[Rfam]
RNA: mir-67 microRNA precursor family
RNA sequence: CUCAAUGGAGACUCACUCAACUUGGUGGUGAUGCUUAUAUAUAGAGCCGUCACAACCUCCUUGAGUGAGUCACUAGAGAG
Numbered sequence: 001c002u003c004a005a006u007g008g009a010g011a012c013u014c015a016c017u018c019a020a021c022u023u024g025g026u027g028g029u030g031a032u033g034c035u036u037a038u039a040u041a042u043a044g045a046g047c048c049g050u051c052a053c054a055a056c057c058u059c060c061u062u063g064a065g066u067g068a069g070u071c072a073c074u075a076g077a078g079a080g
Stems, first nucleotide, its partner, number of pairs: 010070001012069009024057002028053006